[Rfam]
The record is a 132-nucleotide sequence from Furnarius figulus, which matches "Small nucleolar RNA SNORA77" in Rfam. About the family: ACA63 (SNORA77) is a member of the H/ACA class of snoRNAs that guide the sites of modification of uridines to pseudouridines. This snoRNA was identified by computational screening and its expression in mouse experimentally verified by Northern blot and primer extension analysis. ACA63 is proposed to guide the pseudouridylation of 18S rRNA U814. The match comes from Rfam's covariance-model search (48 bits). NCBI's taxonomy places the organism under Eukaryota, Sauria, Dinosauria, Neognathae, Furnarius.

RNA sequence: GCAGACUCACUCUGUGCUGAACUGCAGCCUUCAGUUCAGGUGCUUUUCUGUCUGCAAGAGUAAUGGCUCAGGCGAGUGACUGCAGCCUUCUUUCCUGUAGGAGGCCGUUACAGUUGCUGUUGGGACAUAGCU
Numbered sequence: 001g002c003a004g005a006c007u008c009a010c011u012c013u014g015u016g017c018u019g020a021a022c023u024g025c026a027g028c029c030u031u032c033a034g035u036u037c038a039g040g041u042g043c044u045u046u047u048c049u050g051u052c053u054g055c056a057a058g059a060g061u062a063a064u065g066g067c068u069c070a071g072g073c074g075a076g077u078g079a080c081u082g083c084a085g086c087c088u089u090c091u092u093u094c095c096u097g098u099a100g101g102a103g104g105c106c107g108u109u110a111c112a113g114u115u116g117c118u119g120u121u122g123g124g125a126c127a128u129a130g131c132u
Base pairs, nucleotide, nucleotide: 001055002054003053004052005051006050014043015042016041017039018038019037020036022034023033024032068123069122070121071120075118076117077116079114080113081112082111084109087107090104091103